[Rfam]
Rfam assigns this 355-nucleotide RNA from Pontibacterium sinense to the family "Bacterial RNase P class A". It scores 330 bits against the family's covariance model. The family's consensus secondary structure is taken from published work.

RNA sequence: GAAGUCCGCUAGACAGUCGCCGCCUUGCUUUGGCAGGGGGGAGGAAAGUCCGGGCUCCAUAGGGUAAAGUGCCAGAUAACGUCUGGGCGGCGAAAGUCGACGGAAAGUGCAGCAGAAAGUAUACCGCCUAAGUAUCUUCGGAUAACGGUAAGGUUGAAAAGGUGAGGUAAGAGCUCACCGCGUGGGUGGCAACAUUCCACGGCGAUGGUAAACCCCACUCGGAGCAAGACCAAAUAGGGAUCCUUAAGGUAUGGCCCAUACCGGAUCCGGGUAGGUCGCUUGAGGUGUAUGGCGACGUACACCCUAGAUGAAUGACUGUCCACGACAAAACCCGGCUUAUCGGCGGGCUUCUCCU
Number, nucleotide and partner (000 for none) at each position: 001g351002a350003a349004g348005u347006c346007c345008g344009c343010u342011a340012g320013a319014c318015a317016g316017u315018c314019g000020c041021c040022g000023c038024c037025u036026u035027g034028c033029u000030u000031u000032g000033g028034c027035a026036g025037g024038g023039g000040g021041g020042a000043g000044g000045a000046a338047a337048g336049u000050c335051c334052g333053g332054g331055c224056u223057c222058c221059a000060u000061a000062g257063g256064g255065u254066a000067a000068a219069g218070u217071g216072c086073c085074a084075g083076a082077u000078a000079a000080c000081g000082u076083c075084u074085g073086g072087g101088c099089g098090g097091c096092g000093a000094a000095a000096g091097u090098c089099g088100a000101c087102g215103g214104a000105a000106a000107g213108u212109g209110c208111a000112g000113c000114a000115g000116a000117a000118a000119g000120u000121a000122u000123a000124c153125c152126g149127c148128c147129u000130a000131a000132g000133u144134a143135u142136c141137u000138u000139c000140g000141g136142a135143u134144a133145a000146c000147g128148g127149u126150a000151a000152g125153g124154u000155u000156g000157a000158a000159a000160a000161g179162g178163u177164g176165a175166g174167g000168u000169a000170a000171g000172a000173g000174c166175u165176c164177a163178c162179c161180g203181c201182g200183u199184g198185g197186g195187u194188g193189g000190c000191a000192a000193c188194a187195u186196u000197c185198c184199a183200c182201g181202g000203c180204g000205a000206u000207g000208g110209u109210a000211a000212a108213c107214c103215c102216c071217a070218c069219u068220c000221g058222g057223a056224g055225c000226a000227a000228g277229a276230c275231c274232a000233a000234a000235u000236a000237g000238g268239g267240a266241u265242c264243c263244u000245u000246a000247a000248g262249g261250u260251a259252u258253g000254g065255c064256c063257c062258a252259u251260a250261c249262c248263g243264g242265a241266u240267c239268c238269g000270g000271g000272u000273a000274g231275g230276u229277c228278g000279c000280u000281u000282g000283a000284g303285g302286u301287g300288u299289a298290u297291g296292g000293c000294g000295a000296c291297g290298u289299a288300c287301a286302c285303c284304c000305u000306a000307g000308a000309u000310g000311a000312a000313u000314g018315a017316c016317u015318g014319u013320c012321c000322a000323c000324g000325a000326c000327a000328a000329a000330a000331c054332c053333c052334g051335g050336c048337u047338u046339a000340u011341c000342g010343g009344c008345g007346g006347g005348c004349u003350u002351c001352u000353c000354c000355u000